[Rfam]
RNA sequence: GGUGGACGGUGUGCGUAGCAUCCAUCUACGUUUAGUGCCAUCUCCGGUCUGUGUCUUACAGGCUGUGAGACUGUUCUCACUCUCACACUCACAGCCACAGAGCCAAUGGAGAUCAUAGUACUGGCACAGUGACGUCUAAACGACCAUCCACCACUGGCCAGCCUCCAUAGUCUCCUACAAGU
Numbered sequence: 001g002g003u004g005g006a007c008g009g010u011g012u013g014c015g016u017a018g019c020a021u022c023c024a025u026c027u028a029c030g031u032u033u034a035g036u037g038c039c040a041u042c043u044c045c046g047g048u049c050u051g052u053g054u055c056u057u058a059c060a061g062g063c064u065g066u067g068a069g070a071c072u073g074u075u076c077u078c079a080c081u082c083u084c085a086c087a088c089u090c091a092c093a094g095c096c097a098c099a100g101a102g103c104c105a106a107u108g109g110a111g112a113u114c115a116u117a118g119u120a121c122u123g124g125c126a127c128a129g130u131g132a133c134g135u136c137u138a139a140a141c142g143a144c145c146a147u148c149c150a151c152c153a154c155u156g157g158c159c160a161g162c163c164u165c166c167a168u169a170g171u172c173u174c175c176u177a178c179a180a181g182u
Stems, first nucleotide, its partner, number of pairs: 013092001015090001030082001033079001035077001037074002041070001043068002045065003050060003108175005121161005128155004134145001135143002